[Rfam]
RNA sequence: AAAGUCCCGUCGUAGAAAGGGAGUUAGCCAGACCACUACGUAGCGAGUCUUGCGUUUCCGGCGGUAACAAAGGAGACGAAGCGUAGACAGCGAAACACUCGAGCCGAAACCAAAAGGUGAACGUGAUAGCUCCGAAAUACAUUUAAUCGUGUGUGCCGAUAGUAUCGUUCAGCUAGCAGGCAGCAGCGUCUGAAUGGUCACACUGGCAAAUAUCCAUUCAGCAGUACACACCGGAGCCGCAGGCGU
Numbered sequence: 001a002a003a004g005u006c007c008c009g010u011c012g013u014a015g016a017a018a019g020g021g022a023g024u025u026a027g028c029c030a031g032a033c034c035a036c037u038a039c040g041u042a043g044c045g046a047g048u049c050u051u052g053c054g055u056u057u058c059c060g061g062c063g064g065u066a067a068c069a070a071a072g073g074a075g076a077c078g079a080a081g082c083g084u085a086g087a088c089a090g091c092g093a094a095a096c097a098c099u100c101g102a103g104c105c106g107a108a109a110c111c112a113a114a115a116g117g118u119g120a121a122c123g124u125g126a127u128a129g130c131u132c133c134g135a136a137a138u139a140c141a142u143u144u145a146a147u148c149g150u151g152u153g154u155g156c157c158g159a160u161a162g163u164a165u166c167g168u169u170c171a172g173c174u175a176g177c178a179g180g181c182a183g184c185a186g187c188g189u190c191u192g193a194a195u196g197g198u199c200a201c202a203c204u205g206g207c208a209a210a211u212a213u214c215c216a217u218u219c220a221g222c223a224g225u226a227c228a229c230a231c232c233g234g235a236g237c238c239g240c241a242g243g244c245g246u
Stems, first nucleotide, its partner, number of pairs: 012039004019034002024030001041093001043091002047088004051083002053078007063068001129237006149231006155181003160175004186225002190221007